[Rfam]
RNA: c-di-GMP-I-GGC riboswitch aptamer
Organism: Neobacillus massiliamazoniensis
RNA sequence: ACAGAAAAAGGCAAACCUUUUGAAAAAAAGGGACGCAAAGCUACGGAUCUAAGGCAUUCUACUCGAAGCUAUGAUGGCCGGGCUGCCUGGG
Numbered sequence: 001a002c003a004g005a006a007a008a009a010g011g012c013a014a015a016c017c018u019u020u021u022g023a024a025a026a027a028a029a030g031g032g033a034c035g036c037a038a039a040g041c042u043a044c045g046g047a048u049c050u051a052a053g054g055c056a057u058u059c060u061a062c063u064c065g066a067a068g069c070u071a072u073g074a075u076g077g078c079c080g081g082g083c084u085g086c087c088u089g090g091g
Stems, first nucleotide, its partner, number of pairs: 003088002011036002016031006034077001039084004044080003047075003